About this RNA: Rfam assigns this 90-nucleotide RNA sequence from Brugia malayi to the family "mir-268 microRNA precursor family".

[Rfam]
RNA sequence: UCCAAUUAUUUGAAAUGAUUAGAAGCAGUGUGUUCAAUACUUUUCCCUCACUAUUGAACUUCAAUUGUUUCAAGAAAUUAUUUCAGAUAA
Numbered sequence: 001u002c003c004a005a006u007u008a009u010u011u012g013a014a015a016u017g018a019u020u021a022g023a024a025g026c027a028g029u030g031u032g033u034u035c036a037a038u039a040c041u042u043u044u045c046c047c048u049c050a051c052u053a054u055u056g057a058a059c060u061u062c063a064a065u066u067g068u069u070u071c072a073a074g075a076a077a078u079u080a081u082u083u084c085a086g087a088u089a090a
Stems, first nucleotide, its partner, number of pairs: 008078004017069003021065001022062004026056004030040004

The family's consensus secondary structure was predicted with RNAalifold.